This 73-nucleotide RNA sequence from Acipenser transmontanus belongs to the Rfam family "tRNA". By type it is a transfer RNA. About the family: Transfer RNA (tRNA) molecules are approximately 80 nucleotides in length. NCBI's taxonomy places the organism under Eukaryota, Craniata, Actinopterygii, Acipenserini, Acipenser.

RNA sequence: GCCCUAGUAGCUUAGACAUCAAAGCACCGGUCUUGUAAACCGAAGAUCGAAGGUUAAAAUCCUUCCUAGCGCC
Numbered sequence: 001g002c003c004c005u006a007g008u009a010g011c012u013u014a015g016a017c018a019u020c021a022a023a024g025c026a027c028c029g030g031u032c033u034u035g036u037a038a039a040c041c042g043a044a045g046a047u048c049g050a051a052g053g054u055u056a057a058a059a060u061c062c063u064u065c066c067u068a069g070c071g072c073c
Stems, first nucleotide, its partner, number of pairs: 001072002004069004010025004028042004049065005